[Rfam]
RNA sequence: AACUGAUGAAGUUGGAACAGGUAGCCAACACCUUUAUGGAGAUGCAGAUUACCACCUGCCAUCAGUU
Numbered sequence: 001a002a003c004u005g006a007u008g009a010a011g012u013u014g015g016a017a018c019a020g021g022u023a024g025c026c027a028a029c030a031c032c033u034u035u036a037u038g039g040a041g042a043u044g045c046a047g048a049u050u051a052c053c054a055c056c057u058g059c060c061a062u063c064a065g066u067u
Stems, first nucleotide, its partner, number of pairs: 001067008011029005020053004031039001044059004

Shown here is a 67-nucleotide sequence, a member of the family "skipping-rope RNA".
The base pairs follow the family's consensus structure, which is taken from published work.
By type it is a small RNA.
The sequence is in the family's curated seed alignment.